Description
This 53-nucleotide sequence belongs to the Rfam family "RAGATH-5 RNA".

RNA sequence: GCGGACACCUCAGCAGGGCCGCACCGGACAAAGCGGCCCCGCCCCACCGCCCA
Numbered sequence: 001g002c003g004g005a006c007a008c009c010u011c012a013g014c015a016g017g018g019c020c021g022c023a024c025c026g027g028a029c030a031a032a033g034c035g036g037c038c039c040c041g042c043c044c045c046a047c048c049g050c051c052c053a
Base pairs, nucleotide, nucleotide: 002026003025004024013042016039017038018037020035021034022033
Overview: A reference for the family is Weinberg et al. (2015), "New classes of self-cleaving ribozymes revealed by comparative genomics analysis", Nat Chem Biol. The base pairs follow the family's consensus structure, which is taken from published work. It is annotated as a ribozyme.